This 48-nucleotide RNA sequence belongs to the Rfam family "ssnA RNA". By type it is a cis-regulatory element. The family's consensus secondary structure is taken from published work.

RNA sequence: AAUUUUACGGCUGUAAGGGAGUGCUUCGCGCGCGGGCUGUCAAACCUU
Numbered sequence: 001a002a003u004u005u006u007a008c009g010g011c012u013g014u015a016a017g018g019g020a021g022u023g024c025u026u027c028g029c030g031c032g033c034g035g036g037c038u039g040u041c042a043a044a045c046c047u048u
Stems, first nucleotide, its partner, number of pairs: 008039005021033004
Dot-bracket structure: .......(((((........((((.....)))).))))).........